[Rfam]
The record is a 100-nucleotide RNA sequence from Staphylococcus sp. HMSC071G07, which matches "SAM riboswitch aptamer (S box leader)" in Rfam. Pairs were carried over by alignment from the consensus structure, which is taken from published work. A search with the family's covariance model found it, with a score of 77 bits. NCBI's taxonomy places the organism under Bacteria, Bacillati, Caryophanales, Staphylococcaceae, Staphylococcus.
RNA sequence: AGCUUAUCAAGAGAAGUGGAGGGACUGGCCCGACGAAGCUUCGGCAGCAUGGUCACGCGUGUGCCAAUUCCAGUAGCAAUGAUUUGCUUGAAGAUAAGGU
Numbered sequence: 001a002g003c004u005u006a007u008c009a010a011g012a013g014a015a016g017u018g019g020a021g022g023g024a025c026u027g028g029c030c031c032g033a034c035g036a037a038g039c040u041u042c043g044g045c046a047g048c049a050u051g052g053u054c055a056c057g058c059g060u061g062u063g064c065c066a067a068u069u070c071c072a073g074u075a076g077c078a079a080u081g082a083u084u085u086g087c088u089u090g091a092a093g094a095u096a097a098g099g100u
Stems, first nucleotide, its partner, number of pairs: 001100001003098006013042005021031003025073004043065004048061002050057002069092001075088005